[Rfam]
RNA: Bacterial RNase P class A
Organism: Novosphingobium sp. BW1
RNA sequence: CCGGGGAGCCGGGCAGCCGCGGGUAGGUGUCUCGUUUCUUCAAGACGCCUGCGCGAGGAAAGUCCGGGCUCCACGAAACAAGGGUGGCGGGCAACACCCGCCGGACGAGUGCGGUUUUCAGGCCGUGCGAAGUUCAGGGACAGUGCCACAGAGAGCAGACCGCCGAUGACCCCCGCUUCCUCGUGGAGUGACGGGAACAGGUAAGGCUGAAAGGGUGCGGUAAGAGCGCACCGCGCUGCCGGUGACGGUAAGCGGCAUGGUAAACCCCACCCGGAGCAAGACCGAAUAGGGACUGCGCGCCAUCUUGAAUGGCCGGUCGGUUUCGGGCCGAGGCAGUCCGGGUUGGUUGCUUGAGCGCAUCCGCAAGGAUGUGCCUAGAGGAAUGGCUGCCGCCGCGGCGUAAGGUCCCUCCUGAAAGGGAGACCACGCCAGGCACAGAACCCGGCUUACAGGCUCCCCGGCACA
Numbered sequence: 001c002c003g004g005g006g007a008g009c010c011g012g013g014c015a016g017c018c019g020c021g022g023g024u025a026g027g028u029g030u031c032u033c034g035u036u037u038c039u040u041c042a043a044g045a046c047g048c049c050u051g052c053g054c055g056a057g058g059a060a061a062g063u064c065c066g067g068g069c070u071c072c073a074c075g076a077a078a079c080a081a082g083g084g085u086g087g088c089g090g091g092c093a094a095c096a097c098c099c100g101c102c103g104g105a106c107g108a109g110u111g112c113g114g115u116u117u118u119c120a121g122g123c124c125g126u127g128c129g130a131a132g133u134u135c136a137g138g139g140a141c142a143g144u145g146c147c148a149c150a151g152a153g154a155g156c157a158g159a160c161c162g163c164c165g166a167u168g169a170c171c172c173c174c175g176c177u178u179c180c181u182c183g184u185g186g187a188g189u190g191a192c193g194g195g196a197a198c199a200g201g202u203a204a205g206g207c208u209g210a211a212a213g214g215g216u217g218c219g220g221u222a223a224g225a226g227c228g229c230a231c232c233g234c235g236c237u238g239c240c241g242g243u244g245a246c247g248g249u250a251a252g253c254g255g256c257a258u259g260g261u262a263a264a265c266c267c268c269a270c271c272c273g274g275a276g277c278a279a280g281a282c283c284g285a286a287u288a289g290g291g292a293c294u295g296c297g298c299g300c301c302a303u304c305u306u307g308a309a310u311g312g313c314c315g316g317u318c319g320g321u322u323u324c325g326g327g328c329c330g331a332g333g334c335a336g337u338c339c340g341g342g343u344u345g346g347u348u349g350c351u352u353g354a355g356c357g358c359a360u361c362c363g364c365a366a367g368g369a370u371g372u373g374c375c376u377a378g379a380g381g382a383a384u385g386g387c388u389g390c391c392g393c394c395g396c397g398g399c400g401u402a403a404g405g406u407c408c409c410u411c412c413u414g415a416a417a418g419g420g421a422g423a424c425c426a427c428g429c430c431a432g433g434c435a436c437a438g439a440a441c442c443c444g445g446c447u448u449a450c451a452g453g454c455u456c457c458c459c460g461g462c463a464c465a
Stems, first nucleotide, its partner, number of pairs: 001461010011450001012391007020055002023052010060448003064445005069276004080323001082272005087101005102137001103135004138267002143265002145261003160206002162202003167199002171195002214232006233256001234254004239248003280348004290339006317331005355374008
Dot-bracket structure: ((((((((((((((((((.((.((((((((((..........)))))))))).))....[[[.[[[[[((((.......[.((((((((((.....)))))(((((.........................)))).)((...(((((............(((((..((..((.....................))..)))))..)).......((((((.......))))))(((((.(((....)))..)))).)..)))..)))))))))))))...((((......((((((.....................(((((.]...)))))..)))))).....))))......((((((((....))))))))..........))))))).................................................]]]]]]]].).))))))))))....